[Rfam]
RNA sequence: AAAAAAGCAGGGAUCUGUUACCAUUUGUGAACUUGUCUCUCGUAAACUUCAGGGAUAGAAAACCGCAAUGUUAUUGGGUGAACCUCAUGAGUACUGAUGAUUGCUGGUUCAGUAAACAAUGCUACAUUA
Numbered sequence: 001a002a003a004a005a006a007g008c009a010g011g012g013a014u015c016u017g018u019u020a021c022c023a024u025u026u027g028u029g030a031a032c033u034u035g036u037c038u039c040u041c042g043u044a045a046a047c048u049u050c051a052g053g054g055a056u057a058g059a060a061a062a063c064c065g066c067a068a069u070g071u072u073a074u075u076g077g078g079u080g081a082a083c084c085u086c087a088u089g090a091g092u093a094c095u096g097a098u099g100a101u102u103g104c105u106g107g108u109u110c111a112g113u114a115a116a117c118a119a120u121g122c123u124a125c126a127u128u129a
Base pairs, nucleotide, nucleotide: 005049006048007047011038012037014035017032066121067120069118070117071116072115079111080110081109082108083107084106